[Rfam]
RNA sequence: GGGUGCAAGUUCAAGGCCAUAGUGGAAGCAUUCAUGAUGUGGCCUUUCAGAUUCCAAUGAAUCUGUAAAUUCUGCU
Numbered sequence: 001g002g003g004u005g006c007a008a009g010u011u012c013a014a015g016g017c018c019a020u021a022g023u024g025g026a027a028g029c030a031u032u033c034a035u036g037a038u039g040u041g042g043c044c045u046u047u048c049a050g051a052u053u054c055c056a057a058u059g060a061a062u063c064u065g066u067a068a069a070u071u072c073u074g075c076u
Stems, first nucleotide, its partner, number of pairs: 013046006021076007028040003048065007
Mammalian CPEB3 ribozyme: a 76-nucleotide RNA sequence from Crocodylus porosus. Its family is annotated with RNA nuclease activity in the Gene Ontology. Taxonomically the source falls in Crocodylus (Eukaryota, Vertebrata, Teleostomi, Crocodylidae). The family's consensus secondary structure is taken from published work.